[Rfam]
RNA: Bacterial small signal recognition particle RNA
Organism: Levilactobacillus brevis
RNA sequence: GCCUUGGAGCAAGGGUGGGCUUACGAAUCGUGUCAGGUCCGGAAGGAAGCAGCACUAAGUUUGUUUCGCUUUGUGCUUCAAGUUUAU
Numbered sequence: 001g002c003c004u005u006g007g008a009g010c011a012a013g014g015g016u017g018g019g020c021u022u023a024c025g026a027a028u029c030g031u032g033u034c035a036g037g038u039c040c041g042g043a044a045g046g047a048a049g050c051a052g053c054a055c056u057a058a059g060u061u062u063g064u065u066u067c068g069c070u071u072u073g074u075g076c077u078u079c080a081a082g083u084u085u086a087u
Stems, first nucleotide, its partner, number of pairs: 004081006010073001012072006019064002023060002030055004038047003